[Rfam]
RNA sequence: CCCUCGGAGUAUCAUAUCAAACGAAAGUAGCUUUAUUGCAAAAUCGGAUACAUUGAAUAGGGAA
Numbered sequence: 001c002c003c004u005c006g007g008a009g010u011a012u013c014a015u016a017u018c019a020a021a022c023g024a025a026a027g028u029a030g031c032u033u034u035a036u037u038g039c040a041a042a043a044u045c046g047g048a049u050a051c052a053u054u055g056a057a058u059a060g061g062g063a064a
Stems, first nucleotide, its partner, number of pairs: 001062004009051005022046003030039002

Record summary:
Rfam assigns this 64-nucleotide RNA from Clostridium liquoris to the family "RAGATH-18 RNA". Rfam describes the family as follows. Actinobacteria, Firmicutes, Fusobacteria, Thermotogae (1 example). NCBI's taxonomy places the organism under Bacteria, Bacillati, Bacillota, Clostridiaceae, Clostridium.